[Rfam]
RNA sequence: GAGCUCCCUGACGCGACACAAUACUCAGCAGCAGUAUUGUUGGACCCGCAGUGUCAAGCGUCAGUGGGGUCC
Dot-bracket structure: ((.(((.(((((.......((((((.......))))))....(((.......)))....))))).))).)).
Numbered sequence: 001g002a003g004c005u006c007c008c009u010g011a012c013g014c015g016a017c018a019c020a021a022u023a024c025u026c027a028g029c030a031g032c033a034g035u036a037u038u039g040u041u042g043g044a045c046c047c048g049c050a051g052u053g054u055c056a057a058g059c060g061u062c063a064g065u066g067g068g069g070u071c072c
Stems, first nucleotide, its partner, number of pairs: 001071002004068003008064005020038006043055003

Annotation: bZIP non canonical Hac1/Xbp1 intron: a 72-nucleotide sequence from Endocarpon pusillum. On this family, see Hooks and Griffiths-Jones, RNA Biol 2011: "Conserved RNA structures in the non-canonical Hac1/Xbp1 intron". The base pairs follow the family's consensus structure, which was predicted with RNAfold. The match comes from Rfam's covariance-model search (45 bits). Taxonomically the source falls in Endocarpon pusillum (Eukaryota, Opisthokonta, leotiomyceta, Verrucariales). Rfam's curators write: bZIP intron RNA is a non-canonical intron that was first reported in HAC1 gene in yeast and XBP1 gene in Metazoa.